[Rfam]
RNA: Small nucleolar RNA SNORA72
Organism: Mesocricetus auratus
RNA sequence: CUGCAGACAUUCUUACUUUUUAGGUCUGCUAGGAAUUGAGACAGGCUGAUCACUGUGUCAAAGUCAUGGAUGUAUCCCCACACCUAGCUGUUUCCCUAGGUGUGGUAUUAUAAAUUCUGGUGAUAAAC
Numbered sequence: 001c002u003g004c005a006g007a008c009a010u011u012c013u014u015a016c017u018u019u020u021u022a023g024g025u026c027u028g029c030u031a032g033g034a035a036u037u038g039a040g041a042c043a044g045g046c047u048g049a050u051c052a053c054u055g056u057g058u059c060a061a062a063g064u065c066a067u068g069g070a071u072g073u074a075u076c077c078c079c080a081c082a083c084c085u086a087g088c089u090g091u092u093u094c095c096c097u098a099g100g101u102g103u104g105g106u107a108u109u110a111u112a113a114a115u116u117c118u119g120g121u122g123a124u125a126a127a128c
Base pairs, nucleotide, nucleotide: 003053016044017043019041020040021039023037024036025035063121064120065119066118068117069116078105079104080103081102082101083100084099085098086097087096